RNA sequence: CCGUUAGAAUCGCCCGGUCACUGGGGAGUAGCCUUCCUUCAUCCUUUGAAGGAGAACGCGUCAACAUACUUGGCCUCGUAGGUCAUGGCGCGUUCGACCGUGUCGGUUUGGCGAGACCAUUGACGCACUGCCUCGUUCUGGUCGGACGGGCGGCGGUGCGUCAUUGGUUUGUCAUCUACGUCCGACCGC
Numbered sequence: 001c002c003g004u005u006a007g008a009a010u011c012g013c014c015c016g017g018u019c020a021c022u023g024g025g026g027a028g029u030a031g032c033c034u035u036c037c038u039u040c041a042u043c044c045u046u047u048g049a050a051g052g053a054g055a056a057c058g059c060g061u062c063a064a065c066a067u068a069c070u071u072g073g074c075c076u077c078g079u080a081g082g083u084c085a086u087g088g089c090g091c092g093u094u095c096g097a098c099c100g101u102g103u104c105g106g107u108u109u110g111g112c113g114a115g116a117c118c119a120u121u122g123a124c125g126c127a128c129u130g131c132c133u134c135g136u137u138c139u140g141g142u143c144g145g146a147c148g149g150g151c152g153g154c155g156g157u158g159c160g161u162c163a164u165u166g167g168u169u170u171g172u173c174a175u176c177u178a179c180g181u182c183c184g185a186c187c188g189c
Base pairs, nucleotide, nucleotide: 036052037051038050054095055094056093057092058091059090060089061088062087063086071085072084073083074082075081100189101188102187
RNA: Manganese Mn2+ riboswitch aptamer (yybP-ykoY)
Organism: Burkholderia sp. Ch1-1